[Rfam]
RNA sequence: CCGCGCACGCCUCUCAACGAUGCGCAACCCGCGCGGU
Numbered sequence: 001c002c003g004c005g006c007a008c009g010c011c012u013c014u015c016a017a018c019g020a021u022g023c024g025c026a027a028c029c030c031g032c033g034c035g036g037u
Stems, first nucleotide, its partner, number of pairs: 001036006008024003